[Rfam]
The record is a 144-nucleotide sequence from Thermoactinomyces mirandus, which matches "c-di-AMP riboswitch aptamer (ydaO/yuaA leader)" in Rfam.
Lineage of the source: Bacteria > Bacillati > Bacilli > Caryophanales > Thermoactinomyces.
This family represents a conserved RNA structure found upstream of the ydaO and yuaA genes in Bacillus subtilis and related genes in other bacteria. The ydaO/yuaA element is thought to act as a genetic 'off' switch for the ydaO and yuaA genes in its native state. It is believed that the element may be triggered during osmotic shock leading to activation of ydaO, a predicted amino acid transporter gene, and members of the yuaA-yubG operon which code for KtrA and KtrB K+ transporters.
RNA sequence: CCGUACCAAUCGCUGAAUCCCAUACGGUGGGAACGGGGGAACCAACAUAUUUUACCGGGGUGAAUCCUGAGUCUUGCUCAGGUAGGGUGACUCUCAGCACCCGAAUCCGUCAGUUAACCUCGUAAGCGUUGUGAGAGAGGGAAC
Numbered sequence: 001c002c003g004u005a006c007c008a009a010u011c012g013c014u015g016a017a018u019c020c021c022a023u024a025c026g027g028u029g030g031g032a033a034c035g036g037g038g039g040a041a042c043c044a045a046c047a048u049a050u051u052u053u054a055c056c057g058g059g060g061u062g063a064a065u066c067c068u069g070a071g072u073c074u075u076g077c078u079c080a081g082g083u084a085g086g087g088u089g090a091c092u093c094u095c096a097g098c099a100c101c102c103g104a105a106u107c108c109g110u111c112a113g114u115u116a117a118c119c120u121c122g123u124a125a126g127c128g129u130u131g132u133g134a135g136a137g138a139g140g141g142a143a144c
Stems, first nucleotide, its partner, number of pairs: 011128004018032003033123006043057001058108003066082004085102004